A member of the RNA family "Enterococcus sRNA 2410" from Enterococcus italicus, 183 nucleotides long.
[Rfam]
RNA sequence: UUAGCUACUUUAGAUAGACUUGUAUGCAGCAUUCUGGAUACAAGUACCCAUGUACUAUCUAGAAUGGCUAAAGUAUUUCGCUCUGAUUUUAGCCAGUGGACACAUCCAAAUGGCUGAAUCUUACAAAAAAAGAUUAUGUAACCCAUUUGGACUUUGUCUGGAUGGGUUUUUUAGAGCAAUUAU
Numbered sequence: 001u002u003a004g005c006u007a008c009u010u011u012a013g014a015u016a017g018a019c020u021u022g023u024a025u026g027c028a029g030c031a032u033u034c035u036g037g038a039u040a041c042a043a044g045u046a047c048c049c050a051u052g053u054a055c056u057a058u059c060u061a062g063a064a065u066g067g068c069u070a071a072a073g074u075a076u077u078u079c080g081c082u083c084u085g086a087u088u089u090u091a092g093c094c095a096g097u098g099g100a101c102a103c104a105u106c107c108a109a110a111u112g113g114c115u116g117a118a119u120c121u122u123a124c125a126a127a128a129a130a131a132g133a134u135u136a137u138g139u140a141a142c143c144c145a146u147u148u149g150g151a152c153u154u155u156g157u158c159u160g161g162a163u164g165g166g167u168u169u170u171u172u173a174g175a176g177c178a179a180u181u182a183u
Stems, first nucleotide, its partner, number of pairs: 001071007011061006018045008027036003076130003082126001086121001091115005097108003132158003136154001138152001
NCBI's taxonomy places the organism under Bacteria, Bacilli, Lactobacillales, Enterococcaceae, Enterococcus italicus. About the family: Produced as 2 transcripts on Northern blot. Expressed in mid, late exponential and early stationary phases of growth.